[Rfam]
Purine riboswitch aptamer: a 104-nucleotide RNA from Clostridium niameyense. The source organism's lineage runs through Bacteria, Bacillota, Eubacteriales, Clostridiaceae and Clostridium. Gene Ontology term of the family: purine nucleobase biosynthetic process.
RNA sequence: AAUAAUAUGAAUAUUUGCUCUCAUAUAAAUCUGAUAAUAAGGUUCAGAUGUUUCUACCGAAUAACCGUAAAUUAUUUUCGACUAUGGGGGAUUCUCUAAAUUAC
Number, nucleotide and partner (000 for none) at each position: 001a000002a000003u000004a000005a000006u000007a000008u000009g000010a000011a000012u000013a000014u000015u000016u000017g000018c090019u089020c088021u087022c086023a085024u084025a083026u000027a000028a000029a049030u048031c047032u046033g045034a044035u000036a000037a000038u000039a000040a000041g000042g000043u000044u034045c033046a032047g031048a030049u029050g000051u000052u000053u000054c000055u000056a000057c000058c080059g079060a076061a075062u074063a073064a072065c000066c000067g000068u000069a000070a000071a000072u064073u063074a062075u061076u060077u000078u000079c059080g058081a000082c000083u025084a024085u023086g022087g021088g020089g019090g018091a000092u000093u000094c000095u000096c000097u000098a000099a000100a000101u000102u000103a000104c000